[Rfam]
RNA sequence: GCAACUCUGAAGAGCAGCCGGCUUCGCCGGCUCACCGACGGUGCAAGCGCCAGUGCAAUAUGACGCAAAUCUCUCAGGUUCGAUACAGAGGGGGGAGG
Numbered sequence: 001g002c003a004a005c006u007c008u009g010a011a012g013a014g015c016a017g018c019c020g021g022c023u024u025c026g027c028c029g030g031c032u033c034a035c036c037g038a039c040g041g042u043g044c045a046a047g048c049g050c051c052a053g054u055g056c057a058a059u060a061u062g063a064c065g066c067a068a069a070u071c072u073c074u075c076a077g078g079u080u081c082g083a084u085a086c087a088g089a090g091g092g093g094g095g096a097g098g
Base pairs, nucleotide, nucleotide: 002093005090006089007088008087009086016032017031018030019029034079035078036077037075038074041073043071047066048065
RNA: Glycine riboswitch aptamer